Shown here is a 146-nucleotide sequence from Ectocarpus sp. CCAP 1310/34, a member of the family "Group II catalytic intron D1-D4-7". A reference for the family is Bonen and Vogel (2001), "The ins and outs of group II introns", Trends Genet. About the family: Group II introns are found in rRNA, tRNA and mRNA of organelles in fungi, plants and protists, and also in mRNA in bacteria. Its family is annotated with Group II intron splicing in the Gene Ontology. NCBI's taxonomy places the organism under Eukaryota, Stramenopiles, Ectocarpales, Ectocarpaceae, Ectocarpus.
RNA sequence: CUGUGUUACGCCGAUAUUCUACCUUGACAUGCGUCUGAAGCAAUUCGGGGGUGUGAAGCUCAGGGGACAAUGUAGCCAAAUCUCCAACGAUUGGAGACUACGGAGCUAGAAUGAAUCCCUAUGUCUAAUGUAAUGUGAAUCAACGC
Numbered sequence: 001c002u003g004u005g006u007u008a009c010g011c012c013g014a015u016a017u018u019c020u021a022c023c024u025u026g027a028c029a030u031g032c033g034u035c036u037g038a039a040g041c042a043a044u045u046c047g048g049g050g051g052u053g054u055g056a057a058g059c060u061c062a063g064g065g066g067a068c069a070a071u072g073u074a075g076c077c078a079a080a081u082c083u084c085c086a087a088c089g090a091u092u093g094g095a096g097a098c099u100a101c102g103g104a105g106c107u108a109g110a111a112u113g114a115a116u117c118c119c120u121a122u123g124u125c126u127a128a129u130g131u132a133a134u135g136u137g138a139a140u141c142a143a144c145g146c
Base pairs, nucleotide, nucleotide: 001013005012023064024063025062026061027060028055029054030053031052032051034049035048036047037046038045039044077094079092080091081090082089095126096125097124098123134145135144